[Rfam]
RNA sequence: UGAGCAUCAAUGAUGAGGUAGAAUUAAUUGUUAUCCUUGCACUUUGAUUGCCAGUGAAGAAAACUUACGGGGAAUUACCAUUCUGAGAUGCUU
Numbered sequence: 001u002g003a004g005c006a007u008c009a010a011u012g013a014u015g016a017g018g019u020a021g022a023a024u025u026a027a028u029u030g031u032u033a034u035c036c037u038u039g040c041a042c043u044u045u046g047a048u049u050g051c052c053a054g055u056g057a058a059g060a061a062a063a064c065u066u067a068c069g070g071g072g073a074a075u076u077a078c079c080a081u082u083c084u085g086a087g088a089u090g091c092u093u
Stems, first nucleotide, its partner, number of pairs: 002093007
RNA: Small nucleolar RNA snoR26
Organism: Sesamum indicum